[Rfam]
RNA sequence: UAAAAAAACCAUUCACAACGGAUCGUUCGGCACGUACCUGCCGAUGAAGGGAUUUACUA
Numbered sequence: 001u002a003a004a005a006a007a008a009c010c011a012u013u014c015a016c017a018a019c020g021g022a023u024c025g026u027u028c029g030g031c032a033c034g035u036a037c038c039u040g041c042c043g044a045u046g047a048a049g050g051g052a053u054u055u056a057c058u059a
Base pairs, nucleotide, nucleotide: 009051010050012048013047014046015045027044028043029042030041031040032039

The record is a 59-nucleotide RNA from Arthrobacter sp. ERGS1:01, which matches "msiK RNA" in Rfam. The base pairs follow the family's consensus structure, which is taken from published work. The family has 120 seed sequences and 1,374 matches in Rfam 15.1.